[Rfam]
Shown here is a 42-nucleotide RNA sequence from Enterobacteriaceae bacterium strain FGI 57, a member of the family "ES036 (CssrF) sRNA". The organism belongs to Enterobacteriaceae, within Bacteria. It scores 51 bits against the family's covariance model. Rfam 15.1 lists 273 matches to the family in 31 species.

RNA sequence: AAAUCGUGCAAAUUCAAUAUAUUGCAGAGAAAAUGUAGGCCU
Numbered sequence: 001a002a003a004u005c006g007u008g009c010a011a012a013u014u015c016a017a018u019a020u021a022u023u024g025c026a027g028a029g030a031a032a033a034u035g036u037a038g039g040c041c042u
Base pairs, nucleotide, nucleotide: 004030005029007026008025009024010023011022
Dot-bracket structure: ...((.(((((..........)))))..))............

About the family: Differentially expressed under several chemical stress conditions. Also identified in Shigella as CssrF.